Source information
Shown here is an 86-nucleotide sequence from Ploceus nigricollis, a member of the family "Small nucleolar RNA SNORD127". A search with the family's covariance model found it, with a score of 80 bits. Taxonomically the source falls in Ploceus (Eukaryota, Vertebrata, Teleostomi, Sauropsida). By type it is a C/D-box small nucleolar RNA.

[Rfam]
RNA sequence: UGGCAACAGUGAUGACAGGAGUUGUAACUGGAUGUAACGUCCCAUUACUGCAUGGAGACAACAGUCCCUCUAAACUGACGUUGCCA
Numbered sequence: 001u002g003g004c005a006a007c008a009g010u011g012a013u014g015a016c017a018g019g020a021g022u023u024g025u026a027a028c029u030g031g032a033u034g035u036a037a038c039g040u041c042c043c044a045u046u047a048c049u050g051c052a053u054g055g056a057g058a059c060a061a062c063a064g065u066c067c068c069u070c071u072a073a074a075c076u077g078a079c080g081u082u083g084c085c086a
Stems, first nucleotide, its partner, number of pairs: 001086007